[Rfam]
RNA sequence: CAUGGGGGGGCGGGUCCCUCAGCCUGGAUUGCUAGAGGGUGCAGGCCAGGCCGAGGGACCCCACUGGGGCAGG
Numbered sequence: 001c002a003u004g005g006g007g008g009g010g011c012g013g014g015u016c017c018c019u020c021a022g023c024c025u026g027g028a029u030u031g032c033u034a035g036a037g038g039g040u041g042c043a044g045g046c047c048a049g050g051c052c053g054a055g056g057g058a059c060c061c062c063a064c065u066g067g068g069g070c071a072g073g
Stems, first nucleotide, its partner, number of pairs: 003071002008065002012061009022051003026047002029044004

Rfam assigns this 73-nucleotide sequence from Myotis lucifugus to the family "mir-9193 microRNA precursor family". It scores 64 bits against the family's covariance model.